[Rfam]
RNA: Xanthomonadaceae sRNA Xoo5
Organism: Stenotrophomonas maltophilia
RNA sequence: CCAUGAAGCUCACCGACUUCCAGCACGACAGCAGCGCAGCCCGACAGGCGUCGGGCAUGACCUCGCGUGCGCGUCGACCGGAACCCCACAUCCUCGCUGGGUAACCGGAGCUUUCUGCUGUUCG
Numbered sequence: 001c002c003a004u005g006a007a008g009c010u011c012a013c014c015g016a017c018u019u020c021c022a023g024c025a026c027g028a029c030a031g032c033a034g035c036g037c038a039g040c041c042c043g044a045c046a047g048g049c050g051u052c053g054g055g056c057a058u059g060a061c062c063u064c065g066c067g068u069g070c071g072c073g074u075c076g077a078c079c080g081g082a083a084c085c086c087c088a089c090a091u092c093c094u095c096g097c098u099g100g101g102u103a104a105c106c107g108g109a110g111c112u113u114u115c116u117g118c119u120g121u122u123c124g
Base pairs, nucleotide, nucleotide: 031121032120033119034118035117036116038112039111040110041108042107043079047075048074049073055070056069057068058067059066080106081105085101086100087099088098089096